[Rfam]
RNA sequence: GUAAUGUUUCUUGCUCAAAUGAGUAUUCCAAGCCACAGUUGCAUGCAGUUUGCAAGCACUGGUGCUUCUGCAAUUCUGAGAUGCUCAUUUCAGCAAGCAGCGUUAC
Dot-bracket structure: ...(((((.((((((.(((((((((((.((..............................................)).))))))))))).)))))).)))))...
RNA: MIR828 microRNA precursor family